[Rfam]
RNA: L31-Actinobacteria ribosomal protein leader
Organism: Protofrankia coriariae
RNA sequence: CCGGCACCGGUUCACGCCCUCGUUCAGGGGACAGGGCGACCCGGCGGCC
Numbered sequence: 001c002c003g004g005c006a007c008c009g010g011u012u013c014a015c016g017c018c019c020u021c022g023u024u025c026a027g028g029g030g031a032c033a034g035g036g037c038g039a040c041c042c043g044g045c046g047g048c049c
Stems, first nucleotide, its partner, number of pairs: 003049003007044004015038006022032004